[Rfam]
RNA sequence: UUGAGUGGGUUGCCUAAUUUGAAUCCUGGUGAGAUUCAGAGCGGAGGAACCAAACUUUGGGGCUUAUUUCUGGGAGAUAGCGGGUAAAUGGUGACGUUCAUCGGUUUACGAUUUGCCUUCAUCUGAAAGAGAAGGACACCUUCCAGUCCUCGCCCGUCAGCUAACUCCGUCGGCAGUGGAAGGAGUACUC
Dot-bracket structure: ..........((((...((((((((.......))))))))((((((....((.....))(((.....((((........................................................))))..((((........))))...))).........)))))).))))...............